[Rfam]
RNA: SL2 RNA
Organism: Panagrolaimus sp. PS1159
RNA sequence: GUUUUAUACCCAAGUAUCAAGGUACUAGGCGUUUCCAAUGAUCAUCCUUUUUUGGUUGUGUCAUUAACCAUAAAUUUUUGGAUCAGCAUUACCGGGGACAUAUCCGGAAAUGCAAA
Numbered sequence: 001g002u003u004u005u006a007u008a009c010c011c012a013a014g015u016a017u018c019a020a021g022g023u024a025c026u027a028g029g030c031g032u033u034u035c036c037a038a039u040g041a042u043c044a045u046c047c048u049u050u051u052u053u054g055g056u057u058g059u060g061u062c063a064u065u066a067a068c069c070a071u072a073a074a075u076u077u078u079u080g081g082a083u084c085a086g087c088a089u090u091a092c093c094g095g096g097g098a099c100a101u102a103u104c105c106g107g108a109a110a111u112g113c114a115a116a
Stems, first nucleotide, its partner, number of pairs: 008032001009029002013026005039063004043058002046055002090112002096105002